Rfam assigns this 82-nucleotide RNA sequence from Scleropages formosus to the family "mir-218 microRNA precursor family".

RNA sequence: GGGUUUUCCUUUGUGCUUGAUCUAACCAUGUGGUUGCCAGGUACGAGUAAAACAUGGUUCUGUCAAGCACCAUGGGACACCU
Numbered sequence: 001g002g003g004u005u006u007u008c009c010u011u012u013g014u015g016c017u018u019g020a021u022c023u024a025a026c027c028a029u030g031u032g033g034u035u036g037c038c039a040g041g042u043a044c045g046a047g048u049a050a051a052a053c054a055u056g057g058u059u060c061u062g063u064c065a066a067g068c069a070c071c072a073u074g075g076g077a078c079a080c081c082u
Base pairs, nucleotide, nucleotide: 001082002081003080004079006077007076008075009074013070014069015068016067017066018065019064024059025058026057027056028055029054030053031052
The family's consensus secondary structure was predicted with RNAalifold. The literature on the family includes a 2005 paper in Genes Dev by Chen et al., "The developmental miRNA profiles of zebrafish as determined by small RNA cloning". The source organism's lineage runs through Eukaryota, Opisthokonta, Euteleostomi, Osteoglossocephala and Scleropages.